[Rfam]
RNA sequence: AAACGAUAAUAGCAAACCAACUGAAAGGUUGGGACGCAAAGCCAUAGGGCCUACACAUAAUUAUGUAAGGCAGCCGAGCUACCGAA
Numbered sequence: 001a002a003a004c005g006a007u008a009a010u011a012g013c014a015a016a017c018c019a020a021c022u023g024a025a026a027g028g029u030u031g032g033g034a035c036g037c038a039a040a041g042c043c044a045u046a047g048g049g050c051c052u053a054c055a056c057a058u059a060a061u062u063a064u065g066u067a068a069g070g071c072a073g074c075c076g077a078g079c080u081a082c083c084g085a086a
Base pairs, nucleotide, nucleotide: 012037013036017032018031019030020029021028022027040080041079042078047075048074049071050070051069056065057064058063

The family of this 86-nucleotide sequence from Alkalibaculum sporogenes is "c-di-GMP-I riboswitch aptamer".
Taxonomically the source falls in Alkalibaculum (Bacteria, Bacillati, Clostridia, Eubacteriaceae).
A search with the family's covariance model found it, with a score of 72 bits.
About the family: GEMM was predicted in a large-scale screen for bacterial structured RNA regulatory elements.